Description: The record is a 170-nucleotide RNA from Oscillospiraceae bacterium Marseille-Q3528, which matches "Clostridiales-1 RNA" in Rfam. The family's RNA type in Rfam is small RNA. The source organism's lineage runs through Bacteria, Bacillota, Clostridia, Eubacteriales and Oscillospiraceae. It scores 128 bits against the family's covariance model.
RNA sequence: UGAUACCAGUGGACAAAGGUCUGAACCCACGCAUGCUUGCAUGCAGGUGGGUGAAAGACUUUUGGACACGCCCCAACAUGAGCAUAAAAGGGAAGCGGCAGCUUCACGAUAUGCGAAUGGUGGGCGAGAAUUGCGGGAGUGCGAAGCACGGAGCAAUUCGAAGGGUAUCA
Dot-bracket structure: (((((((..((....(((((((...((((((((((....)))))..)))))....)))))))....))...((((.(((..((((....(.(((((....))))).)...))))..))).))))...(((((((....((((...))))...)))))))....)))))))
Numbered sequence: 001u002g003a004u005a006c007c008a009g010u011g012g013a014c015a016a017a018g019g020u021c022u023g024a025a026c027c028c029a030c031g032c033a034u035g036c037u038u039g040c041a042u043g044c045a046g047g048u049g050g051g052u053g054a055a056a057g058a059c060u061u062u063u064g065g066a067c068a069c070g071c072c073c074c075a076a077c078a079u080g081a082g083c084a085u086a087a088a089a090g091g092g093a094a095g096c097g098g099c100a101g102c103u104u105c106a107c108g109a110u111a112u113g114c115g116a117a118u119g120g121u122g123g124g125c126g127a128g129a130a131u132u133g134c135g136g137g138a139g140u141g142c143g144a145a146g147c148a149c150g151g152a153g154c155a156a157u158u159c160g161a162a163g164g165g166u167a168u169c170a
Stems, first nucleotide, its partner, number of pairs: 001170007010068002016062007026051005031044005072124004077119003082114004090107001092105005128159007139149004